[Rfam]
Nucleotides: 093
Stems, first nucleotide, its partner, number of pairs: 012080002015077004023069005029064005
Number, partner (000 for none) and nucleotide at each position: 001000g002000a003000g004000c005000a006000u007000c008000a009000g010000c011000a012080c013079c014000u015077u016076g017075g018074c019000u020000u021000u022000a023069g024068a025067c026066u027065g028000c029064u030063u031062a032061c033060u034000g035000c036000u037000u038000u039000a040000a041000a042000a043000a044000a045000a046000a047000g048000u049000c050000u051000c052000a053000c054000a055000g056000u057000u058000a059000c060033a061032g062031u063030a064029a065027c066026a067025g068024u069023c070000u071000a072000c073000a074018g075017u076016c077015a078000u079013g080012g081000c082000u083000a084000c085000u086000g087000a088000u089000g090000c091000c092000u093000g
Rfam assigns this 93-nucleotide sequence from Salmo salar to the family "mir-132 microRNA precursor family".
Gene Ontology terms of the family: miRNA-mediated post-transcriptional gene silencing and RISC complex.
A reference for the family is Chen et al. (2005), "The developmental miRNA profiles of zebrafish as determined by small RNA cloning", Genes Dev.
A search with the family's covariance model found it, with a score of 68 bits.